A member of the RNA family "c-di-AMP riboswitch aptamer (ydaO/yuaA leader)" from Mesobacillus campisalis, 150 nucleotides long. The family has 106 seed sequences and 7,607 matches in Rfam 15.1. It scores 84 bits against the family's covariance model. Gene Ontology terms of the family: cyclic-di-AMP binding and regulation of gene expression.

RNA sequence: AUUAUGCACAUGCUGAAUCUUAUUUUAAGAGCGGGGGACCCAAUCUAGACGGCGGAUUUCCGCUUGGGGUGAAUCCAUAUAAUGGAGGGGCUUGCUGUUUCCAUCGUCCCAACCCGAAAGCUAACCUCGUAAGCAUUUAAGGAAACAUAA
Numbered sequence: 001a002u003u004a005u006g007c008a009c010a011u012g013c014u015g016a017a018u019c020u021u022a023u024u025u026u027a028a029g030a031g032c033g034g035g036g037g038a039c040c041c042a043a044u045c046u047a048g049a050c051g052g053c054g055g056a057u058u059u060c061c062g063c064u065u066g067g068g069g070u071g072a073a074u075c076c077a078u079a080u081a082a083u084g085g086a087g088g089g090g091c092u093u094g095c096u097g098u099u100u101c102c103a104u105c106g107u108c109c110c111a112a113c114c115c116g117a118a119a120g121c122u123a124a125c126c127u128c129g130u131a132a133g134c135a136u137u138u139a140a141g142g143a144a145a146c147a148u149a150a
Base pairs, nucleotide, nucleotide: 011135012134013133014132018030019029020028031130032129033128034127035126036125041066042065067115068114069113075085076084077083078082088109089108090107091106
Dot-bracket structure: ..........((((...(((.......)))((((((....((......................))(((.....((((...))))..((((..............))))...))).........)))))).))))...............